SAM riboswitch aptamer (S box leader): a 98-nucleotide RNA sequence from Faecalicatena orotica. Its family is annotated with regulation of gene expression in the Gene Ontology.
[Rfam]
RNA sequence: CUCUUAUUCAGAGCGGUGGAGGUACAAAGGACCUGUGAAGCCGCGGCAACCCCUAACACGGAAGGUGCCAACCUGAGCGAGUAAUCGAACAAUAAGAG
Numbered sequence: 001c002u003c004u005u006a007u008u009c010a011g012a013g014c015g016g017u018g019g020a021g022g023u024a025c026a027a028a029g030g031a032c033c034u035g036u037g038a039a040g041c042c043g044c045g046g047c048a049a050c051c052c053c054u055a056a057c058a059c060g061g062a063a064g065g066u067g068c069c070a071a072c073c074u075g076a077g078c079g080a081g082u083a084a085u086c087g088a089a090c091a092a093u094a095a096g097a098g
Base pairs, nucleotide, nucleotide: 001098002097003096004095005094006093007092008091013044014043015042016041017040021033022032023031030074045069046068047067048066050065051064052061053060078087079086080085